Source information: Shown here is a 151-nucleotide RNA from Litoreibacter arenae, a member of the family "Ruegeria cis2 sRNA". Rfam classes the family as a small RNA. Gene Ontology term of the family: regulation of gene expression. A reference for the family is Rivers et al. (2016), "Experimental Identification of Small Non-Coding RNAs in the Model Marine Bacterium Ruegeria pomeroyi DSS-3", Front Microbiol.

RNA sequence: GCUGAAAUGCGGGUUGUAGUUGAUGAACGUGAAACCGCGGGCCUGAUCAAUGCAGUGAAACAGCGGGUUCCAGUCGAAAAAAGCCAGCAUGGCCGAUGGCAUGCUGUUGGCAACAAACAUCUUGCCGGACGCAACCAUAUUGGCGCGGCUG
Numbered sequence: 001g002c003u004g005a006a007a008u009g010c011g012g013g014u015u016g017u018a019g020u021u022g023a024u025g026a027a028c029g030u031g032a033a034a035c036c037g038c039g040g041g042c043c044u045g046a047u048c049a050a051u052g053c054a055g056u057g058a059a060a061c062a063g064c065g066g067g068u069u070c071c072a073g074u075c076g077a078a079a080a081a082a083g084c085c086a087g088c089a090u091g092g093c094c095g096a097u098g099g100c101a102u103g104c105u106g107u108u109g110g111c112a113a114c115a116a117a118c119a120u121c122u123u124g125c126c127g128g129a130c131g132c133a134a135c136c137a138u139a140u141u142g143g144c145g146c147g148g149c150u151g
Stems, first nucleotide, its partner, number of pairs: 001030001003029002010022003036052002039048002061151004065146001068078003083144005089138003094131002097128001099126001100124002103121001105119001107116003